[Rfam]
RNA sequence: UUACCAGUCAAGCUCCUGGAUGGUAUCCAUCUCUCACCUGGUUCCAGGCUCUAGCCAUGGCUUGACUGCAUG
Numbered sequence: 001u002u003a004c005c006a007g008u009c010a011a012g013c014u015c016c017u018g019g020a021u022g023g024u025a026u027c028c029a030u031c032u033c034u035c036a037c038c039u040g041g042u043u044c045c046a047g048g049c050u051c052u053a054g055c056c057a058u059g060g061c062u063u064g065a066c067u068g069c070a071u072g
Stems, first nucleotide, its partner, number of pairs: 007066003011062004017057003021053003027041003